[Rfam]
Overview: Rfam assigns this 62-nucleotide RNA sequence to the family "mir-33 microRNA precursor family". Rfam's curators put it in the seed alignment. For this family Rfam cites "Direct sequencing and expression analysis of a large number of miRNAs in Aedes aegypti and a multi-species survey of novel mosquito miRNAs" (Li et al., BMC Genomics, 2009). Pairs were carried over by alignment from the consensus structure, which was predicted with PFOLD.
RNA sequence: UAGUGCAUUGUAGUUGCAUUGCAUGUUGUGGCAGUGACUGUGCAAUGUUUCUGCAGUGCAGU
Numbered sequence: 001u002a003g004u005g006c007a008u009u010g011u012a013g014u015u016g017c018a019u020u021g022c023a024u025g026u027u028g029u030g031g032c033a034g035u036g037a038c039u040g041u042g043c044a045a046u047g048u049u050u051c052u053g054c055a056g057u058g059c060a061g062u
Stems, first nucleotide, its partner, number of pairs: 004060010016048001018046007